The family of this 69-nucleotide RNA sequence is "Transposase-2 RNA". By type it is a small RNA. The family has 151 seed sequences and 214 matches in Rfam 15.1. It is one of the family's seed sequences.

[Rfam]
RNA sequence: GAAGCGCGAACCGGGCGGGCGCACAAGCGCCGCAAGGCCCGGAGCUGGCGGAGGCAACCCCGCCAUGCA
Numbered sequence: 001g002a003a004g005c006g007c008g009a010a011c012c013g014g015g016c017g018g019g020c021g022c023a024c025a026a027g028c029g030c031c032g033c034a035a036g037g038c039c040c041g042g043a044g045c046u047g048g049c050g051g052a053g054g055c056a057a058c059c060c061c062g063c064c065a066u067g068c069a
Stems, first nucleotide, its partner, number of pairs: 011042005018031005046065006053058001